This 106-nucleotide sequence from Galbitalea soli belongs to the Rfam family "Glycine riboswitch aptamer". The organism belongs to Galbitalea, within Bacteria. Its family is annotated with glycine biosynthetic process in the Gene Ontology.
RNA sequence: GCCACUCUGAAAAGAGCCGUCCGGCAGACCAGCCGGGCUGCCGCCGACGGUGAAAGUCGACCCUCCGGGUCGGCGAAACUCUCAGGCCGAUGACAGAGGGGGAGUU
Numbered sequence: 001g002c003c004a005c006u007c008u009g010a011a012a013a014g015a016g017c018c019g020u021c022c023g024g025c026a027g028a029c030c031a032g033c034c035g036g037g038c039u040g041c042c043g044c045c046g047a048c049g050g051u052g053a054a055a056g057u058c059g060a061c062c063c064u065c066c067g068g069g070u071c072g073g074c075g076a077a078a079c080u081c082u083c084a085g086g087c088c089g090a091u092g093a094c095a096g097a098g099g100g101g102g103a104g105u106u
Base pairs, nucleotide, nucleotide: 002101003100005098006097007096008095009094016041017040019038020037021036022035023034024033043087044086045085046083047082050081052079056074057073058072059071060070061069